[Rfam]
RNA sequence: GAAGGGGUUGUGGCCCUUCGGAGUCGCCCGUCGGGUGGGAGGCUCCAAACCACCUCAUGCUGCGUUGGCUGACGACCGUCGUGGUGAGCGAUGAGGAAAAGGUGCCCCGUUGGAGGGCGUCAGGC
Number, nucleotide and partner (000 for none) at each position: 001g019002a018003a017004g016005g015006g000007g000008u000009u000010g000011u000012g000013g000014c000015c005016c004017u003018u002019c001020g046021g045022a044023g043024u042025c041026g000027c039028c038029c037030g036031u000032c000033g000034g000035g000036u030037g029038g028039g027040a000041g025042g024043c023044u022045c021046c020047a000048a000049a000050c000051c124052a000053c096054c095055u094056c093057a092058u091059g085060c084061u000062g082063c081064g080065u000066u078067g077068g076069c000070u000071g000072a000073c000074g000075a000076c068077c067078g066079u000080c064081g063082u062083g000084g060085u059086g000087a000088g000089c000090g000091a058092u057093g056094a055095g054096g053097a000098a000099a000100a000101g121102g120103u119104g118105c117106c116107c000108c000109g000110u000111u000112g000113g000114a000115g000116g106117g105118c104119g103120u102121c101122a000123g000124g051125c000

Shown here is a 125-nucleotide RNA from Amycolatopsis acidiphila, a member of the family "Group II catalytic intron D1-D4-2".
Gene Ontology term of the family: Group II intron splicing.
A search with the family's covariance model found it, with a score of 88 bits.
The organism belongs to Amycolatopsis, within Bacteria.
Rfam describes the family as follows. Group II introns are found in rRNA, tRNA and mRNA of organelles in fungi, plants and protists, and also in mRNA in bacteria.